[Rfam]
RNA sequence: UUGAGGUGAGGUAGUAGGUUGUAUAGUUUGGUGGGGAGAUCCUUCCCUAUUCUGGUGAUAACUAUACAGUCUAUUGCCUUCCCCGA
Numbered sequence: 001u002u003g004a005g006g007u008g009a010g011g012u013a014g015u016a017g018g019u020u021g022u023a024u025a026g027u028u029u030g031g032u033g034g035g036g037a038g039a040u041c042c043u044u045c046c047c048u049a050u051u052c053u054g055g056u057g058a059u060a061a062c063u064a065u066a067c068a069g070u071c072u073a074u075u076g077c078c079u080u081c082c083c084c085g086a
Base pairs, nucleotide, nucleotide: 001086002085003084005082006081008080009079010078011077012076013075014074015073016072017071018070019069020068021067022066023065024064025063026062027061033047034046035045050057

let-7 microRNA precursor family: an 86-nucleotide RNA from Clupea harengus.
The literature on the family includes a 2001 paper in Nat Rev Genet by Rougvie, "Control of developmental timing in animals".
About the family: This family represents the microRNAs (miRNA) let-7 and mir-98. let-7 was identified from a study of developmental timing in C. elegans, and was later shown to be part of a much larger class of non-coding RNAs termed miRNAs.
A search with the family's covariance model found it, with a score of 70 bits.